[Rfam]
RNA sequence: CUCGUUCUUCGCGCGGGAGCUCGACCCGCGACUGCCGUGGUAGUUCAGUUCAUCGACGAUCAUCGUGACCGGUUCGGGGUCGAGCCGAUCUGCCGGGUGCUCACCGAGCACCAUGUGCCGAUCGCUCCG
Numbered sequence: 001c002u003c004g005u006u007c008u009u010c011g012c013g014c015g016g017g018a019g020c021u022c023g024a025c026c027c028g029c030g031a032c033u034g035c036c037g038u039g040g041u042a043g044u045u046c047a048g049u050u051c052a053u054c055g056a057c058g059a060u061c062a063u064c065g066u067g068a069c070c071g072g073u074u075c076g077g078g079g080u081c082g083a084g085c086c087g088a089u090c091u092g093c094c095g096g097g098u099g100c101u102c103a104c105c106g107a108g109c110a111c112c113a114u115g116u117g118c119c120g121a122u123c124g125c126u127c128c129g
Stems, first nucleotide, its partner, number of pairs: 013029005075129005086124002089121002092118002

This 129-nucleotide RNA from Microbacterium aurantiacum belongs to the Rfam family "ALIL pseudoknot". Its family is annotated with positive regulation of translational frameshifting in the Gene Ontology. The organism belongs to Microbacterium, within Bacteria. The family's consensus secondary structure is taken from published work. A reference for the family is Mazauric et al. (2008), "Apical loop-internal loop RNA pseudoknots: a new type of stimulator of -1 translational frameshifting in bacteria", J Biol Chem.